The record is a 109-nucleotide RNA sequence from Noviherbaspirillum denitrificans, which matches "SAM-I/IV (S-adenosyl methionine) riboswitch aptamer" in Rfam. The organism belongs to Noviherbaspirillum, within Bacteria. The family is grouped with related families in Rfam's "SAM clan".
[Rfam]
RNA sequence: GACGUGCAUCAAGAGUUGGGUUGACGCCCAUGCCAACCUGCCAGCCGGGCAAGGUGGACCGCCAAACAGGCGGAUGUGGUCCCGAACAGGGACAACCAAACGGACCGUC
Number, nucleotide and partner (000 for none) at each position: 001g000002a000003c000004g000005u000006g077007c076008a075009u074010c073011a000012a000013g000014a000015g031016u000017u030018g029019g028020g027021u026022u000023g000024a000025c000026g021027c020028c019029c018030a017031u015032g000033c057034c056035a000036a000037c054038c053039u052040g050041c049042c048043a000044g105045c000046c103047g000048g042049g041050c040051a000052a039053g038054g037055u000056g034057g033058a000059c000060c000061g000062c000063c000064a000065a000066a000067c000068a000069g000070g000071c000072g000073g010074a009075u008076g007077u006078g000079g093080u092081c091082c090083c000084g000085a000086a000087c000088a000089g000090g082091g081092a080093c079094a000095a000096c000097c000098a000099a000100a000101c000102g000103g046104a000105c044106c000107g000108u000109c000